[Rfam]
RNA sequence: AAAUGAAAGUAGAAGCACCCGCUUCUCGCCUGAGGGAUCAUAUCGCUGGGCAGAAUAGGAUUUCAGACUAAAUUUAGGCUGAAGUACGCGCGGGUUCUGAUAAAGAACUCGUUUUUUUGUAUUUUA
Numbered sequence: 001a002a003a004u005g006a007a008a009g010u011a012g013a014a015g016c017a018c019c020c021g022c023u024u025c026u027c028g029c030c031u032g033a034g035g036g037a038u039c040a041u042a043u044c045g046c047u048g049g050g051c052a053g054a055a056u057a058g059g060a061u062u063u064c065a066g067a068c069u070a071a072a073u074u075u076a077g078g079c080u081g082a083a084g085u086a087c088g089c090g091c092g093g094g095u096u097c098u099g100a101u102a103a104a105g106a107a108c109u110c111g112u113u114u115u116u117u118u119g120u121a122u123u124u125u126a
Stems, first nucleotide, its partner, number of pairs: 011026006028051003034046001036044002090112009
Record summary:
This 126-nucleotide sequence from Enterococcus aquimarinus belongs to the Rfam family "Ribosomal protein L20 leader". On this family, see Zengel and Lindahl, Prog Nucleic Acid Res Mol Biol 1994: "Diverse mechanisms for regulating ribosomal protein synthesis in Escherichia coli". Rfam classes the family as a cis-regulatory leader. About the family: This family is a putative r-protein leader autoregulatory structure found in B. subtilis and other low-GC Gram-positive bacteria. It is located in the 5' untranslated regions of mRNAs encoding initiation factor 3 followed by ribosomal proteins L35 and L20 (infC-rpmI-rplT). A Rho-independent transcription terminator structure that is probably involved in regulation is included at the 3' end. Gene Ontology term of the family: regulation of gene expression.